This 136-nucleotide sequence from Mediterraneibacter catenae belongs to the Rfam family "FMN riboswitch aptamer (RFN element)". The family's consensus secondary structure is taken from published work. NCBI's taxonomy places the organism under Bacteria, Bacillota, Lachnospirales, Lachnospiraceae, Mediterraneibacter. About the family: The RFN element is a highly conserved domain that is found frequently in the 5'-untranslated regions of prokaryotic mRNAs that encode for flavin mononucleotide (FMN) biosynthesis and transport proteins.

RNA sequence: UAAAAUCUUCGGGGUCGGGUGUAAGUCCCAACCGGCGGUAUAGUCCGCGAACUGCUUCACAGCAGCCGAACCGGUGACCUUCUGAUAAGAAGGAAUUCCGGUACCGACAGUAUAGUCUGGAUGAGAGAAGAGAUUU
Numbered sequence: 001u002a003a004a005a006u007c008u009u010c011g012g013g014g015u016c017g018g019g020u021g022u023a024a025g026u027c028c029c030a031a032c033c034g035g036c037g038g039u040a041u042a043g044u045c046c047g048c049g050a051a052c053u054g055c056u057u058c059a060c061a062g063c064a065g066c067c068g069a070a071c072c073g074g075u076g077a078c079c080u081u082c083u084g085a086u087a088a089g090a091a092g093g094a095a096u097u098c099c100g101g102u103a104c105c106g107a108c109a110g111u112a113u114a115g116u117c118u119g120g121a122u123g124a125g126a127g128a129a130g131a132g133a134u135u136u
Stems, first nucleotide, its partner, number of pairs: 003134001006131005017029003031116002033106002035048004043104002052065002070102005108119003